This 83-nucleotide RNA from Phtheirospermum japonicum belongs to the Rfam family "Plastid-psbM 3UTR RNA".
The family's RNA type in Rfam is cis-regulatory element.
About the family: Plastid psbM is a non-coding RNA (ncRNA) recognised in plastids. It was found in the three prime untranslated region (3UTR) of psbM gene, its 3UTR location suggests a role in transcript maturation.
The literature on the family includes a 2023 paper in Plant Commun by Richter et al., "Retrograde signaling in plants: A critical review focusing on the GUN pathway and beyond".
Nucleotides: 083
Base pairs, nucleotide, nucleotide: 006045007044008043009042010041011040012039013038014037015036016035017034018033019032020031021030023028
Number, partner (000 for none) and nucleotide at each position: 001000a002000g003000a004000u005000a006045g007044a008043u009042a010041g011040u012039a013038u014037g015036g016035u017034c018033g019032a020031a021030a022000u023028a024000u025000u026000a027000g028023u029000c030021u031020u032019u033018c034017g035016a036015c037014c038013a039012u040011a041010c042009u043008a044007u045006c046000u047000a048000u049000c050000u051000u052000a053000g054000u055000c056000u057000g058000u059000u060000g061000u062000a063000a064000u065000c066000u067000a068000a069000a070000a071000u072000a073000a074000a075000g076000a077000u078000a079000a080000a081000g082000g083000c

The base pairs follow the family's consensus structure, which was predicted with LocARNA.
NCBI's taxonomy places the organism under Eukaryota, Streptophyta, Tracheophyta, Mesangiospermae, Phtheirospermum.